[Rfam]
RNA sequence: UGCUGAAAAAGGUAAACUUAUUGAAAGAUAAGGACGCAAAACUAUAGGGGCUUCUAUCUUUAAGAUAUGCCAGCCAGUUGCCAGG
Numbered sequence: 001u002g003c004u005g006a007a008a009a010a011g012g013u014a015a016a017c018u019u020a021u022u023g024a025a026a027g028a029u030a031a032g033g034a035c036g037c038a039a040a041a042c043u044a045u046a047g048g049g050g051c052u053u054c055u056a057u058c059u060u061u062a063a064g065a066u067a068u069g070c071c072a073g074c075c076a077g078u079u080g081c082c083a084g085g
Stems, first nucleotide, its partner, number of pairs: 012037002017032006040079004047075002049071003056066004